Source information
This 132-nucleotide sequence from Carlito syrichta belongs to the Rfam family "Small nucleolar RNA SNORA68". On this family, see Ganot et al., Genes Dev 1997: "The family of box ACA small nucleolar RNAs is defined by an evolutionarily conserved secondary structure and ubiquitous sequence elements essential for RNA accumulation". From the family's description: U68 is a member of the H/ACA class of small nucleolar RNAs (snoRNAs) which act as guides in the the modification of uridines to pseudouridines. NCBI's taxonomy places the organism under Eukaryota, Bilateria, Euteleostomi, Mammalia, Carlito. Rfam links the family to the GO terms RNA processing and nucleolus. Rfam classes the family as an H/ACA-box small nucleolar RNA.
RNA sequence: CCGGCACCUCAACCCAAGAACUGCUGUUUCCUGUAGCGGUGGUUUAAACAGGGGUGCACACAGCAAGUGGAUCCCGUCGCCUUUGGGGGCUGUGGCUGUGCCCCUCAAAGUGAAAGUGGAGGUCCCACAUCC
Numbered sequence: 001c002c003g004g005c006a007c008c009u010c011a012a013c014c015c016a017a018g019a020a021c022u023g024c025u026g027u028u029u030c031c032u033g034u035a036g037c038g039g040u041g042g043u044u045u046a047a048a049c050a051g052g053g054g055u056g057c058a059c060a061c062a063g064c065a066a067g068u069g070g071a072u073c074c075c076g077u078c079g080c081c082u083u084u085g086g087g088g089g090c091u092g093u094g095g096c097u098g099u100g101c102c103c104c105u106c107a108a109a110g111u112g113a114a115a116g117u118g119g120a121g122g123u124c125c126c127a128c129a130u131c132c
Stems, first nucleotide, its partner, number of pairs: 004057006019044010069125005075119001081110005086104005